The family of this 167-nucleotide RNA sequence is "IS605-orfB-II RNA".
It is one of the family's seed sequences.

RNA sequence: CAUGAUGAAACAUAUAAUUACGUAUGUUUUGGAUUGUAUAGAAGGUAGUCGCAGUCGCCUCAAACCUAUUUGAUAUGAUUUUAAAUAAUCCGCUGUCAAAAGAAUUGGAAAAACAAAUUCUUUAGAAUUUGGAAAAGUUUAAAAAUUUUAAAUUUUUAACUAACUGU
Numbered sequence: 001c002a003u004g005a006u007g008a009a010a011c012a013u014a015u016a017a018u019u020a021c022g023u024a025u026g027u028u029u030u031g032g033a034u035u036g037u038a039u040a041g042a043a044g045g046u047a048g049u050c051g052c053a054g055u056c057g058c059c060u061c062a063a064a065c066c067u068a069u070u071u072g073a074u075a076u077g078a079u080u081u082u083a084a085a086u087a088a089u090c091c092g093c094u095g096u097c098a099a100a101a102g103a104a105u106u107g108g109a110a111a112a113a114c115a116a117a118u119u120c121u122u123u124a125g126a127a128u129u130u131g132g133a134a135a136a137g138u139u140u141a142a143a144a145a146u147u148u149u150a151a152a153u154u155u156u157u158a159a160c161u162a163a164c165u166g167u
Stems, first nucleotide, its partner, number of pairs: 006031010043060004051167004065108002069101001070099006077090004114131007136161004141156004